[Rfam]
RNA sequence: UCCUACAAUGGCAUGAAAUCUCUGAGACCUGAUUAUCCUUAUGAUGACAGCCAUAGGCAUGUUUCUAAGGAC
Numbered sequence: 001u002c003c004u005a006c007a008a009u010g011g012c013a014u015g016a017a018a019u020c021u022c023u024g025a026g027a028c029c030u031g032a033u034u035a036u037c038c039u040u041a042u043g044a045u046g047a048c049a050g051c052c053a054u055a056g057g058c059a060u061g062u063u064u065c066u067a068a069g070g071a072c
Base pairs, nucleotide, nucleotide: 001071002070003069032042033041
Annotation
Rfam assigns this 72-nucleotide sequence from Triticum aestivum to the family "Small nucleolar RNA R66". The literature on the family includes a 2003 paper in Nucleic Acids Res by Chen et al., "The high diversity of snoRNAs in plants: identification and comparative study of 120 snoRNA genes from Oryza sativa". By type it is a C/D-box small nucleolar RNA. The organism belongs to Triticum, within Eukaryota. Rfam links the family to the GO terms nucleolus and RNA processing. The family has 6 seed sequences and 584 matches in Rfam 15.1.